[Rfam]
RNA sequence: UUAACAAACGCCUCAUUGAACUGUUCUGUCACUCUCUGACAGAGAACAAUUUGUUAUUUGACAGAGAGGGACAAAACAGUUCAGUAGCUAAAGCGUCCAGUAUU
Numbered sequence: 001u002u003a004a005c006a007a008a009c010g011c012c013u014c015a016u017u018g019a020a021c022u023g024u025u026c027u028g029u030c031a032c033u034c035u036c037u038g039a040c041a042g043a044g045a046a047c048a049a050u051u052u053g054u055u056a057u058u059u060g061a062c063a064g065a066g067a068g069g070g071a072c073a074a075a076a077c078a079g080u081u082c083a084g085u086a087g088c089u090a091a092a093g094c095g096u097c098c099a100g101u102a103u104u
Stems, first nucleotide, its partner, number of pairs: 002102002011093001013091001015085010025065007045055004
Dot-bracket structure: .((.......(.(.(((((((((((((((((.............((((...))))...)))))))..........)))))))))).....).).......))..

A member of the RNA family "mir-8517 microRNA precursor family" from Plutella xylostella, 104 nucleotides long. Its family is annotated with miRNA-mediated post-transcriptional gene silencing and RISC complex in the Gene Ontology. A search with the family's covariance model found it, with a score of 76 bits. The source organism's lineage runs through Eukaryota, Altocrustacea, Pterygota, Amphiesmenoptera and Plutella.